[Rfam]
RNA sequence: CUUCCCAUUAUACUACCACUUUUUCACUUUCCAGAUUAAGUGGCUAUGCUUGUGGGAUAGAGAAAAACCUGCUACGGUCUGAAGGAAAAGGUUGAUUAUAUCUUUUUCCUAUAUGAAGUUGGCAGAACAUCCUUUA
Numbered sequence: 001c002u003u004c005c006c007a008u009u010a011u012a013c014u015a016c017c018a019c020u021u022u023u024u025c026a027c028u029u030u031c032c033a034g035a036u037u038a039a040g041u042g043g044c045u046a047u048g049c050u051u052g053u054g055g056g057a058u059a060g061a062g063a064a065a066a067a068c069c070u071g072c073u074a075c076g077g078u079c080u081g082a083a084g085g086a087a088a089a090g091g092u093u094g095a096u097u098a099u100a101u102c103u104u105u106u107u108c109c110u111a112u113a114u115g116a117a118g119u120u121g122g123c124a125g126a127a128c129a130u131c132c133u134u135u136a
Stems, first nucleotide, its partner, number of pairs: 004056004016043004071123004089110003
RNA: Small nucleolar RNA SNORA29
Organism: Rhinoptilus africanus